[Rfam]
RNA sequence: CCCCGGACUGACGUCCGGGGCUACUGCCUACCGUCGCGUUGCGACU
Numbered sequence: 001c002c003c004c005g006g007a008c009u010g011a012c013g014u015c016c017g018g019g020g021c022u023a024c025u026g027c028c029u030a031c032c033g034u035c036g037c038g039u040u041g042c043g044a045c046u
Base pairs, nucleotide, nucleotide: 001020002019003018004017005016006015007014008013033045034044035043036042037041
A member of the RNA family "Acido-Lenti-1 RNA" from Novipirellula maiorica, 46 nucleotides long. By type it is a small RNA.